[Rfam]
RNA sequence: GGACAGUGAUGAAGUUUAAAUUAAGGUCUCGUUCGUCGUAAUUUGCGAUUUUUUCGCAUUGCCGAAUACUCUUAACCAUUUCUGAGUCC
Numbered sequence: 001g002g003a004c005a006g007u008g009a010u011g012a013a014g015u016u017u018a019a020a021u022u023a024a025g026g027u028c029u030c031g032u033u034c035g036u037c038g039u040a041a042u043u044u045g046c047g048a049u050u051u052u053u054u055c056g057c058a059u060u061g062c063c064g065a066a067u068a069c070u071c072u073u074a075a076c077c078a079u080u081u082c083u084g085a086g087u088c089c
Stems, first nucleotide, its partner, number of pairs: 001089004047060002
A member of the RNA family "Small nucleolar RNA Z43" from Chenopodium quinoa, 89 nucleotides long. Rfam links the family to the GO terms RNA processing and nucleolus. It scores 45 bits against the family's covariance model.